[Rfam]
RNA: Alphaproteobacterial ar14
Organism: Mesorhizobium sp. Root157
RNA sequence: CGAAUUCCGCCGAGCCAUCCUCCUCCCAGGCUAAGGCGGAUACGGUCAGCCUUCACCUCCUCCCGAUCGCUGACCGACCCAUACGACACCCGCCGGACCUCCUCCCCCGGCGGGUGUUGUUU
Numbered sequence: 001c002g003a004a005u006u007c008c009g010c011c012g013a014g015c016c017a018u019c020c021u022c023c024u025c026c027c028a029g030g031c032u033a034a035g036g037c038g039g040a041u042a043c044g045g046u047c048a049g050c051c052u053u054c055a056c057c058u059c060c061u062c063c064c065g066a067u068c069g070c071u072g073a074c075c076g077a078c079c080c081a082u083a084c085g086a087c088a089c090c091c092g093c094c095g096g097a098c099c100u101c102c103u104c105c106c107c108c109g110g111c112g113g114g115u116g117u118u119g120u121u122u
Stems, first nucleotide, its partner, number of pairs: 007039003013032004044075007053066001086117011